[Rfam]
RNA: Small nucleolar RNA SNORD81
Organism: Heterocephalus glaber
RNA sequence: GCCAACUACACAAUGAUCUCACUUCAACUUGAACCCUCUCACUGAUUACUUAAUGAUGACCAAAGAUCUGAUGUUCGU
Dot-bracket structure: ((.(((.(...............................................................)))).))